Lysine riboswitch aptamer: a 179-nucleotide RNA from Planococcus sp. PAMC 21323. Pairs were carried over by alignment from the consensus structure, which is taken from published work. The match comes from Rfam's covariance-model search (123 bits). The organism belongs to Planococcus, within Bacteria.
RNA sequence: GAGUAGGAUAGAGGCGCAAAAACCAUCAGUACGCAAAACGAGGACGAUGAGGUCCAUUGACGUUUGCCGAAAGGGGGAUUUGCCGAAGUGACGGAAAACUCAUAUUUCCGUGCGCUGGGUCUGUAUUUAACAAAUACAGGACUGUCAUAUAGGAAACUAUAUGGAGGGCUAUCUGAUGC
Numbered sequence: 001g002a003g004u005a006g007g008a009u010a011g012a013g014g015c016g017c018a019a020a021a022a023c024c025a026u027c028a029g030u031a032c033g034c035a036a037a038a039c040g041a042g043g044a045c046g047a048u049g050a051g052g053u054c055c056a057u058u059g060a061c062g063u064u065u066g067c068c069g070a071a072a073g074g075g076g077g078a079u080u081u082g083c084c085g086a087a088g089u090g091a092c093g094g095a096a097a098a099c100u101c102a103u104a105u106u107u108c109c110g111u112g113c114g115c116u117g118g119g120u121c122u123g124u125a126u127u128u129a130a131c132a133a134a135u136a137c138a139g140g141a142c143u144g145u146c147a148u149a150u151a152g153g154a155a156a157c158u159a160u161a162u163g164g165a166g167g168g169c170u171a172u173c174u175g176a177u178g179c
Stems, first nucleotide, its partner, number of pairs: 006174006016083005023076002033067005087116004091111007117143002120140008145164007